[Rfam]
RNA: TPP riboswitch aptamer (THI element)
RNA sequence: UAUGACUGCUGGGGGAGCCGUUAGGCUGAGAAAUCGAUGAUUAAAACCCUUUGCACCUGAUCUGGUUUAUGCCAGCGUAGGGAAGCAGGCUGAGACGAGG
Numbered sequence: 001u002a003u004g005a006c007u008g009c010u011g012g013g014g015g016a017g018c019c020g021u022u023a024g025g026c027u028g029a030g031a032a033a034u035c036g037a038u039g040a041u042u043a044a045a046a047c048c049c050u051u052u053g054c055a056c057c058u059g060a061u062c063u064g065g066u067u068u069a070u071g072c073c074a075g076c077g078u079a080g081g082g083a084a085g086c087a088g089g090c091u092g093a094g095a096c097g098a099g100g
Base pairs, nucleotide, nucleotide: 006088007087008086009085010084011050012049013048014047017026018025019024033041034040035039056081057080058079059078062075063074064073065072